[Rfam]
RNA sequence: UAAACGGCGAUGAAGAGGACAGUAGGUAACUUCCCGAGGUUACAGAGAGUCGGGCAAGGUGAGAGCCGAUACCGAGGGAUUUACCGAAAAUCACCUCCGAGCUGCCGGGGUGAAACUGAGUAGCUCCGGUCGGGGCCCUUUUGUAGGGAAUAGGCACCCGUUAAAGUGCCGGGUAUCGGACCGUGAGGUCCCGUACCUGCCGAGGUCCGCACCGUGAGGUGCGGAUGAAGAGGGUGGUACCGCGAAGGCCCUUCGCCCCUUAU
Numbered sequence: 001u002a003a004a005c006g007g008c009g010a011u012g013a014a015g016a017g018g019a020c021a022g023u024a025g026g027u028a029a030c031u032u033c034c035c036g037a038g039g040u041u042a043c044a045g046a047g048a049g050u051c052g053g054g055c056a057a058g059g060u061g062a063g064a065g066c067c068g069a070u071a072c073c074g075a076g077g078g079a080u081u082u083a084c085c086g087a088a089a090a091u092c093a094c095c096u097c098c099g100a101g102c103u104g105c106c107g108g109g110g111u112g113a114a115a116c117u118g119a120g121u122a123g124c125u126c127c128g129g130u131c132g133g134g135g136c137c138c139u140u141u142u143g144u145a146g147g148g149a150a151u152a153g154g155c156a157c158c159c160g161u162u163a164a165a166g167u168g169c170c171g172g173g174u175a176u177c178g179g180a181c182c183g184u185g186a187g188g189u190c191c192c193g194u195a196c197c198u199g200c201c202g203a204g205g206u207c208c209g210c211a212c213c214g215u216g217a218g219g220u221g222c223g224g225a226u227g228a229a230g231a232g233g234g235u236g237g238u239a240c241c242g243c244g245a246a247g248g249c250c251c252u253u254c255g256c257c258c259c260u261u262a263u
Stems, first nucleotide, its partner, number of pairs: 007102002015097004025085005038073003049070005105129007131160003205226007231260004242256005
RNA: T-box leader
Organism: Fervidicola ferrireducens